[Rfam]
RNA sequence: GUCUUACCUGUUCAAUAUUUAGACUAACACAUCAAGAGAUCUAAUACUGUCAGGUAAUGACGCU
Numbered sequence: 001g002u003c004u005u006a007c008c009u010g011u012u013c014a015a016u017a018u019u020u021a022g023a024c025u026a027a028c029a030c031a032u033c034a035a036g037a038g039a040u041c042u043a044a045u046a047c048u049g050u051c052a053g054g055u056a057a058u059g060a061c062g063c064u
Stems, first nucleotide, its partner, number of pairs: 001061003004057007013049002016046004021042003

Description
This 64-nucleotide sequence from Caenorhabditis brenneri belongs to the Rfam family "mir-236 microRNA precursor family". Its family is annotated with RISC complex and miRNA-mediated post-transcriptional gene silencing in the Gene Ontology. Taxonomically the source falls in Caenorhabditis (Eukaryota, Rhabditida, Rhabditina, Rhabditomorpha).